[Rfam]
RNA sequence: AGGCGGGAAACGCCAACACAUGGAUGGAGGCGGGGGACCCAAUUGGUUCGCCGAAAUCGGACCGGAGCCGUGCGCGGCUCCUUGGGGUGAAGCCAACGCCGUUCCCGCGGGGCGACGUGGCCGGGCAACUCUCUCUGGUUGCACACCAGCCCGAACCCGACAGCUGACCUCGAAGGCGCAUCGAGAGAGGACAU
Numbered sequence: 001a002g003g004c005g006g007g008a009a010a011c012g013c014c015a016a017c018a019c020a021u022g023g024a025u026g027g028a029g030g031c032g033g034g035g036g037a038c039c040c041a042a043u044u045g046g047u048u049c050g051c052c053g054a055a056a057u058c059g060g061a062c063c064g065g066a067g068c069c070g071u072g073c074g075c076g077g078c079u080c081c082u083u084g085g086g087g088u089g090a091a092g093c094c095a096a097c098g099c100c101g102u103u104c105c106c107g108c109g110g111g112g113c114g115a116c117g118u119g120g121c122c123g124g125g126c127a128a129c130u131c132u133c134u135c136u137g138g139u140u141g142c143a144c145a146c147c148a149g150c151c152c153g154a155a156c157c158c159g160a161c162a163g164c165u166g167a168c169c170u171c172g173a174a175g176g177c178g179c180a181u182c183g184a185g186a187g188a189g190g191a192c193a194u
Stems, first nucleotide, its partner, number of pairs: 011178004017029001019027001031172005040084002085158003093120003123152004
Dot-bracket structure: ..........((((..(.(.......).).(((((....((.........................................))(((.....(((......................)))..((((......................))))...))).........)))))..))))................